[Rfam]
RNA sequence: AUUGGUUUCGAGAUCUCAGCAUUUAAAUUAAUUAUUGCUGGGAUUUAGAAAGCAUUAU
Numbered sequence: 001a002u003u004g005g006u007u008u009c010g011a012g013a014u015c016u017c018a019g020c021a022u023u024u025a026a027a028u029u030a031a032u033u034a035u036u037g038c039u040g041g042g043a044u045u046u047a048g049a050a051a052g053c054a055u056u057a058u
Stems, first nucleotide, its partner, number of pairs: 001056001003054002006051004011046011
Shown here is a 58-nucleotide sequence from Acyrthosiphon pisum, a member of the family "mir-3036 microRNA precursor family". Its family is annotated with miRNA-mediated post-transcriptional gene silencing and RISC complex in the Gene Ontology. The family's consensus secondary structure was predicted with RNAalifold. NCBI's taxonomy places the organism under Eukaryota, Allotriocarida, Aphidomorpha, Aphidoidea, Acyrthosiphon.